The family of this 130-nucleotide RNA sequence from Upupa epops is "Small nucleolar RNA SNORA1". Lineage of the source: Eukaryota > Eumetazoa > Tetrapoda > Theropoda > Upupa. From the family's description: ACA1 is a member of the H/ACA class of snoRNA that guide the sites of modification of uridines to pseudouridines. Pairs were carried over by alignment from the consensus structure, which was predicted with PFOLD. Rfam links the family to the GO terms nucleolus and RNA processing.
[Rfam]
RNA sequence: UGCCUCGUUAUUCAGCAGAUGGACACAGGGCAAGUUGUGUCUGAAUUGAAGACGUGGCUAGAAGAGUAACAGGUUUUGCUUUCCUCACUGCACAGUCAUUGCAGUGGUGACAAUGAGGCCUGUAACAUGA
Numbered sequence: 001u002g003c004c005u006c007g008u009u010a011u012u013c014a015g016c017a018g019a020u021g022g023a024c025a026c027a028g029g030g031c032a033a034g035u036u037g038u039g040u041c042u043g044a045a046u047u048g049a050a051g052a053c054g055u056g057g058c059u060a061g062a063a064g065a066g067u068a069a070c071a072g073g074u075u076u077u078g079c080u081u082u083c084c085u086c087a088c089u090g091c092a093c094a095g096u097c098a099u100u101g102c103a104g105u106g107g108u109g110a111c112a113a114u115g116a117g118g119c120c121u122g123u124a125a126c127a128u129g130a
Base pairs, nucleotide, nucleotide: 002058003057004056006054007053008052021042022041023040024039025038026037027036069123070122071121072120073119083109085107086106087105088104